[Rfam]
RNA sequence: GGGGCAGGGGGGUCUCCGUCGUCAACGGCGGUGCCUGUCCACCGAGGUUGCGCGAAGGCGUGGCCAGUGGUUGUCGCUCGGGGGUGAUCGCCG
Numbered sequence: 001g002g003g004g005c006a007g008g009g010g011g012g013u014c015u016c017c018g019u020c021g022u023c024a025a026c027g028g029c030g031g032u033g034c035c036u037g038u039c040c041a042c043c044g045a046g047g048u049u050g051c052g053c054g055a056a057g058g059c060g061u062g063g064c065c066a067g068u069g070g071u072u073g074u075c076g077c078u079c080g081g082g083g084g085u086g087a088u089c090g091c092c093g
Base pairs, nucleotide, nucleotide: 002040003039004038005037006036007035008034014033016031017030018029019028020027046065047064048063049062050061051060052059053058
This 93-nucleotide sequence from Streptomyces netropsis belongs to the Rfam family "che1 RNA". By type it is a small RNA. The organism belongs to Streptomyces, within Bacteria. The family's consensus secondary structure is taken from published work.